RNA sequence: CGUAUGGUGCUUGUCUUCGGGAUAAGUGGCGAUACGGGCCAAAUGAUGAGGC
Numbered sequence: 001c002g003u004a005u006g007g008u009g010c011u012u013g014u015c016u017u018c019g020g021g022a023u024a025a026g027u028g029g030c031g032a033u034a035c036g037g038g039c040c041a042a043a044u045g046a047u048g049a050g051g052c
Base pairs, nucleotide, nucleotide: 001036002035003034004033005032007030008029011025012024013023014022015021
The record is a 52-nucleotide RNA sequence from Bowmanella sp. JS7-9, which matches "L31-Gammaproteobacteria ribosomal protein leader" in Rfam.
For this family Rfam cites "Discovery of 20 novel ribosomal leader candidates in bacteria and archaea" (Eckert and Weinberg, BMC Microbiol, 2020).
By type it is a cis-regulatory leader.
The family is grouped with related families in Rfam's "Ribosomal Protein L31 Leader clan".